The record is an 83-nucleotide RNA from Caldisalinibacter kiritimatiensis, which matches "Group II catalytic intron D1-D4-1" in Rfam. From the family's description: Group II introns are found in rRNA, tRNA and mRNA of organelles in fungi, plants and protists, and also in mRNA in bacteria. Taxonomically the source falls in Caldisalinibacter (Bacteria, Bacillati, Tissierellia, Tissierellales). It scores 55 bits against the family's covariance model.
[Rfam]
RNA sequence: AAAGCAUGGUUGAAACAAGAUUUAUCAUGAGAAGUCAGCCGAGGUCAUAGUACUAGAGUAGCUAUAGAUACUCUAGGAAGGAC
Numbered sequence: 001a002a003a004g005c006a007u008g009g010u011u012g013a014a015a016c017a018a019g020a021u022u023u024a025u026c027a028u029g030a031g032a033a034g035u036c037a038g039c040c041g042a043g044g045u046c047a048u049a050g051u052a053c054u055a056g057a058g059u060a061g062c063u064a065u066a067g068a069u070a071c072u073c074u075a076g077g078a079a080g081g082a083c
Stems, first nucleotide, its partner, number of pairs: 001022002005019001007017002010014001035042002044083003053076008